[Rfam]
RNA sequence: UGAGAACCCUGUGAAUCAAAUAUUGUAGUGAUUCACAGGGUUCGCGCCGAUU
Numbered sequence: 001u002g003a004g005a006a007c008c009c010u011g012u013g014a015a016u017c018a019a020a021u022a023u024u025g026u027a028g029u030g031a032u033u034c035a036c037a038g039g040g041u042u043c044g045c046g047c048c049g050a051u052u
Stems, first nucleotide, its partner, number of pairs: 001046002004043015